Nitrogen stress-induced RNA 1: a 52-nucleotide RNA from Allocoleopsis franciscana. The pairing is the family consensus, mapped onto this sequence.
RNA sequence: UGGUAGAUGCACCCUGAUUCAAUCCCUGGCGAACACGCUGGGGGUUUUUUAU
Numbered sequence: 001u002g003g004u005a006g007a008u009g010c011a012c013c014c015u016g017a018u019u020c021a022a023u024c025c026c027u028g029g030c031g032a033a034c035a036c037g038c039u040g041g042g043g044g045u046u047u048u049u050u051a052u
Base pairs, nucleotide, nucleotide: 002013003012004011023044024043025042026041027040028039029038030037031036
Taxonomically the source falls in Allocoleopsis franciscana (Bacteria, Cyanophyceae, Coleofasciculaceae, Allocoleopsis).